[Rfam]
RNA: Small nucleolar RNA SNORA72
Organism: Rhinolophus ferrumequinum
RNA sequence: CAGAAAUAUUUUUAAUUUCUUUUAAUUAUAAAAAGUAAGUUAAAAGCUACAACAUUUGCUAUAUUAAGACCGAGCAUAUGUCCCCAGACCUAGUUCUCUCCCUAGGUCUGGUUUUACAAAUGCUGGUUAUAAAA
Numbered sequence: 001c002a003g004a005a006a007u008a009u010u011u012u013u014a015a016u017u018u019c020u021u022u023u024a025a026u027u028a029u030a031a032a033a034a035g036u037a038a039g040u041u042a043a044a045a046g047c048u049a050c051a052a053c054a055u056u057u058g059c060u061a062u063a064u065u066a067a068g069a070c071c072g073a074g075c076a077u078a079u080g081u082c083c084c085c086a087g088a089c090c091u092a093g094u095u096c097u098c099u100c101c102c103u104a105g106g107u108c109u110g111g112u113u114u115u116a117c118a119a120a121u122g123c124u125g126g127u128u129a130u131a132a133a134a
Stems, first nucleotide, its partner, number of pairs: 003059001005057001016045003021039004026034001069127004074123002084111010